[Rfam]
RNA sequence: AGGAGGACGACCUCCCUCGAAAGAAUCACGUUGGGACGACCCAA
Number, nucleotide and partner (000 for none) at each position: 001a000002g015003g014004a013005g012006g011007a000008c000009g000010a000011c006012c005013u004014c003015c002016c000017u000018c000019g000020a000021a000022a000023g000024a000025a000026u000027c000028a000029c000030g000031u044032u043033g042034g041035g040036a000037c000038g000039a000040c035041c034042c033043a032044a031
RNA: Guanidine-II riboswitch aptamer (mini-ykkC)
Organism: Corythaeola cristata